[Rfam]
The record is an 83-nucleotide sequence from Rattus norvegicus, which matches "Small nucleolar RNA SNORD103/SNORD85" in Rfam. Rfam links the family to the GO terms nucleolus and RNA processing. The pairing is the family consensus, mapped onto this sequence. The organism belongs to Rattus, within Eukaryota. It is one of the family's seed sequences.
RNA sequence: UCUGGCGGUGAUGACCCACUUGCCCUCACUGAGGACAAAGUUCGUUGGUGAGAACCUUUGAUAUGGACUCGUUCUGAGCCAGA
Numbered sequence: 001u002c003u004g005g006c007g008g009u010g011a012u013g014a015c016c017c018a019c020u021u022g023c024c025c026u027c028a029c030u031g032a033g034g035a036c037a038a039a040g041u042u043c044g045u046u047g048g049u050g051a052g053a054a055c056c057u058u059u060g061a062u063a064u065g066g067a068c069u070c071g072u073u074c075u076g077a078g079c080c081a082g083a
Stems, first nucleotide, its partner, number of pairs: 001083006